[Rfam]
RNA sequence: AAACAACCCCCUAAGUUUUGAAACUGUAACAGUUUUGGUCCCCAAGGCCAAUUUUUGGUAGAAAAAACAAAAAAAUAACACGUGGCACCUCACUUAGGGUGCCACGUCAGCGUAGAUCGAGUCAAAAUUGGUCCUGGAGGCCAAAACUUCCACAAAUGCAAAACUUAGGGGGCGGUUU
Numbered sequence: 001a002a003a004c005a006a007c008c009c010c011c012u013a014a015g016u017u018u019u020g021a022a023a024c025u026g027u028a029a030c031a032g033u034u035u036u037g038g039u040c041c042c043c044a045a046g047g048c049c050a051a052u053u054u055u056u057g058g059u060a061g062a063a064a065a066a067a068c069a070a071a072a073a074a075a076u077a078a079c080a081c082g083u084g085g086c087a088c089c090u091c092a093c094u095u096a097g098g099g100u101g102c103c104a105c106g107u108c109a110g111c112g113u114a115g116a117u118c119g120a121g122u123c124a125a126a127a128u129u130g131g132u133c134c135u136g137g138a139g140g141c142c143a144a145a146a147c148u149u150c151c152a153c154a155a156a157u158g159c160a161a162a163a164c165u166u167a168g169g170g171g172g173c174g175g176u177u178u
Stems, first nucleotide, its partner, number of pairs: 001178002004175001007172002012167009022157001025154003031148010042137003080107002083104007
A member of the RNA family "MIR2619 microRNA precursor family" from Medicago truncatula, 178 nucleotides long. A search with the family's covariance model found it, with a score of 118 bits. Taxonomically the source falls in Medicago (Eukaryota, Gunneridae, rosids, Trifolieae). Pairs were carried over by alignment from the consensus structure, which was predicted with RNAalifold.